M-box riboswitch aptamer (ykoK leader): a 178-nucleotide sequence from Nocardia huaxiensis. Gene Ontology terms of the family: regulation of gene expression and response to magnesium ion. The organism belongs to Nocardia, within Bacteria. A search with the family's covariance model found it, with a score of 120 bits. The pairing is the family consensus, mapped onto this sequence. Rfam's curators write: M-box riboswitch, also know as ykoK leader is described as a metaloregulatory RNA that sense divalent metals and function as a genetic control element of genes related to divalent metal transport in bacteria.

RNA sequence: AGGUGCCGUCGUUAGCUGAGGCUCCUUCACGGAUACAGGCCGGCGAUCGUAAACGUCGAGAGACGCCACUGAUCAGGACAGAUCUUCCCGAGUUAAGGGGACAUCCCGACCGGCUCCCACCGCGUGCGCGGAGGGUUCACGCCGUGGAGUGCUGAAGGUCUUACGAAAGAUGGGAGGU
Numbered sequence: 001a002g003g004u005g006c007c008g009u010c011g012u013u014a015g016c017u018g019a020g021g022c023u024c025c026u027u028c029a030c031g032g033a034u035a036c037a038g039g040c041c042g043g044c045g046a047u048c049g050u051a052a053a054c055g056u057c058g059a060g061a062g063a064c065g066c067c068a069c070u071g072a073u074c075a076g077g078a079c080a081g082a083u084c085u086u087c088c089c090g091a092g093u094u095a096a097g098g099g100g101a102c103a104u105c106c107c108g109a110c111c112g113g114c115u116c117c118c119a120c121c122g123c124g125u126g127c128g129c130g131g132a133g134g135g136u137u138c139a140c141g142c143c144g145u146g147g148a149g150u151g152c153u154g155a156a157g158g159u160c161u162u163a164c165g166a167a168a169g170a171u172g173g174g175a176g177g178u
Stems, first nucleotide, its partner, number of pairs: 006173005011164002013096001015159003020153003025149008039114005045074005054065004081105003087099003116135003